[Rfam]
RNA sequence: ACCCUUGCAGGACCGCAUUGGCCGCCCUAUAUUCGAACUGUUCGGGUUCGCCCGGACUAUAGGUAUAAACGCGCUCGUAAUAAGCGGAUCGGACCCGGGGGCGGUACCCGGCGGCUCCACCAUCAUUCGCCUUCGUUGGGGGGAUCUGGGGCCGAAACAGGAUCGACGAACGUCUAAAGGGGUUUGCUUUACCUCGGUGAGCUACCACCGUUAUCGGUGCGAAUUGUACAGUUGCCAACGACAACCGUGCUCCGGUCGCUCUGGCUGCGUAAGCAGCUCGGGUAACCGAAACCUAACUCCUUGCGCUUAGCAGCGUAAGGCGGGGCCGGCAGGAGCCUUGCAACAGAAUCCUGCCACU
Numbered sequence: 001a002c003c004c005u006u007g008c009a010g011g012a013c014c015g016c017a018u019u020g021g022c023c024g025c026c027c028u029a030u031a032u033u034c035g036a037a038c039u040g041u042u043c044g045g046g047u048u049c050g051c052c053c054g055g056a057c058u059a060u061a062g063g064u065a066u067a068a069a070c071g072c073g074c075u076c077g078u079a080a081u082a083a084g085c086g087g088a089u090c091g092g093a094c095c096c097g098g099g100g101g102c103g104g105u106a107c108c109c110g111g112c113g114g115c116u117c118c119a120c121c122a123u124c125a126u127u128c129g130c131c132u133u134c135g136u137u138g139g140g141g142g143g144a145u146c147u148g149g150g151g152c153c154g155a156a157a158c159a160g161g162a163u164c165g166a167c168g169a170a171c172g173u174c175u176a177a178a179g180g181g182g183u184u185u186g187c188u189u190u191a192c193c194u195c196g197g198u199g200a201g202c203u204a205c206c207a208c209c210g211u212u213a214u215c216g217g218u219g220c221g222a223a224u225u226g227u228a229c230a231g232u233u234g235c236c237a238a239c240g241a242c243a244a245c246c247g248u249g250c251u252c253c254g255g256u257c258g259c260u261c262u263g264g265c266u267g268c269g270u271a272a273g274c275a276g277c278u279c280g281g282g283u284a285a286c287c288g289a290a291a292c293c294u295a296a297c298u299c300c301u302u303g304c305g306c307u308u309a310g311c312a313g314c315g316u317a318a319g320g321c322g323g324g325g326c327c328g329g330c331a332g333g334a335g336c337c338u339u340g341c342a343a344c345a346g347a348a349u350c351c352u353g354c355c356a357c358u
Base pairs, nucleotide, nucleotide: 040057041056042055043054044053045052046051061194062193063192064191065190071187072186073183074182075181076180085172086171089169090168091167095111096110097109098108099107112154113153114152115151116150117149118148195210196209197208198207201220202219204218205217206216323338324337325336326335329354330353331352332351333350334349

About this RNA:
The record is a 358-nucleotide RNA sequence from Paracoccus jeotgali, which matches "Alphaproteobacteria transfer-messenger RNA" in Rfam. Rfam links the family to the GO term RNA catabolic process. The family's RNA type in Rfam is non-coding RNA gene. Bacterial tmRNA, also known as 10Sa RNA or SsrA, is named for its dual tRNA and mRNA-like properties. Its role is to liberate the mRNA from a stalled ribosome. To accomplish this part of the tmRNA is used as a reading frame that ends in a translation stop signal. The organism belongs to Paracoccus, within Bacteria. It scores 284 bits against the family's covariance model.